The record is an 80-nucleotide sequence, which matches "ZMP/ZTP riboswitch aptamer (pfl RNA motif)" in Rfam.
[Rfam]
RNA sequence: UAGGCACCAUGUGACUGGCGCUGAAGACAGAAUACUGUCGGGGAGCAUGGUCGACGUCGCCGCGCGCCUGGGCAUUACCG
Numbered sequence: 001u002a003g004g005c006a007c008c009a010u011g012u013g014a015c016u017g018g019c020g021c022u023g024a025a026g027a028c029a030g031a032a033u034a035c036u037g038u039c040g041g042g043g044a045g046c047a048u049g050g051u052c053g054a055c056g057u058c059g060c061c062g063c064g065c066g067c068c069u070g071g072g073c074a075u076u077a078c079c080g
Stems, first nucleotide, its partner, number of pairs: 006051007015042002017068005027038004059073003